[Rfam]
RNA sequence: GUUAAAUAUACGUUUGUACCGAAGACAGUAGGGGCGAUAGAUCGCUUAAUUUCCUACCGAGGACAAGUAAAUUCAGAUUCUUUUUAGAUGAUGACUUUCUGCCUCUGUGUCUAUUCGUAGAACAGAGGCUUUUCUUUUGUCGGU
Numbered sequence: 001g002u003u004a005a006a007u008a009u010a011c012g013u014u015u016g017u018a019c020c021g022a023a024g025a026c027a028g029u030a031g032g033g034g035c036g037a038u039a040g041a042u043c044g045c046u047u048a049a050u051u052u053c054c055u056a057c058c059g060a061g062g063a064c065a066a067g068u069a070a071a072u073u074c075a076g077a078u079u080c081u082u083u084u085u086a087g088a089u090g091a092u093g094a095c096u097u098u099c100u101g102c103c104u105c106u107g108u109g110u111c112u113a114u115u116c117g118u119a120g121a122a123c124a125g126a127g128g129c130u131u132u133u134c135u136u137u138u139g140u141c142g143g144u
Base pairs, nucleotide, nucleotide: 028057029056030055031054032053033052034045035044036043101129102128103127104126105125106124107123108122110120
Source information: Shown here is a 144-nucleotide sequence from Psychrobacillus psychrotolerans, a member of the family "Ribosomal protein L10 leader". It scores 80 bits against the family's covariance model. By type it is a cis-regulatory leader. NCBI's taxonomy places the organism under Bacteria, Bacillati, Bacillota, Bacilli, Psychrobacillus. The family's consensus secondary structure was predicted with CMfinder.